[Rfam]
RNA sequence: CAGCUAUUGUGUGCAUAAUAGUCAUCCAUCUGUGUCUGACAGCAGUGCCUCCGUGUUGCAUUCAGAUCUUGCUAUCCGCGCAAACACCAUGCAGCCAAAGAAUAAGUUCGGAUCAUAGUACCACUCCAGUGUCAUCUCACUGGACAUAAUUUACUACUGGCCAGUUCCCAAGUUCCCACACAGAA
Number, nucleotide and partner (000 for none) at each position: 001c000002a000003g000004c000005u000006a000007u000008u000009g000010u000011g000012u000013g092014c091015a090016u089017a000018a000019u000020a000021g000022u000023c000024a000025u000026c000027c000028a000029u000030c000031u000032g000033u082034g081035u080036c000037u078038g077039a000040c000041a073042g072043c071044a070045g069046u000047g067048c000049c065050u060051c000052c058053g000054u000055g000056u000057u000058g052059c000060a050061u000062u000063c000064a000065g049066a000067u047068c000069u045070u044071g043072c042073u041074a000075u000076c000077c038078g037079c000080g035081c034082a033083a000084a000085c000086a000087c000088c000089a016090u015091g014092c013093a000094g000095c000096c000097a000098a000099a000100g000101a000102a000103u000104a000105a000106g000107u000108u178109c000110g176111g175112a174113u000114c000115a000116u000117a000118g000119u000120a000121c164122c000123a000124c000125u160126c159127c000128a158129g157130u156131g155132u000133c000134a147135u146136c000137u144138c143139a000140c000141u000142g000143g138144a137145c000146a135147u134148a000149a000150u000151u000152u000153a000154c000155u131156a130157c129158u128159g126160g125161c000162c000163a000164g121165u000166u000167c000168c000169c000170a000171a000172g000173u000174u112175c111176c110177c000178a108179c000180a000181c000182a000183g000184a000185a000
A member of the RNA family "Small nucleolar RNA SNORA23" from Phyllostomus discolor, 185 nucleotides long. The base pairs follow the family's consensus structure, which was predicted with RNAalifold. The members of this family belong to the H/ACA class of snoRNAs which are thought to guide the sites of modification of uridines to pseudouridines. This family includes human snoRNA ACA23 (SNORA23) and mouse snoMBI-1. On this family, see Huttenhofer et al., EMBO J 2001: "RNomics: an experimental approach that identifies 201 candidates for novel, small, non-messenger RNAs in mouse". Its family is annotated with nucleolus and RNA processing in the Gene Ontology. The family's RNA type in Rfam is H/ACA-box small nucleolar RNA. Rfam 15.1 lists 1,092 matches to the family in 632 species.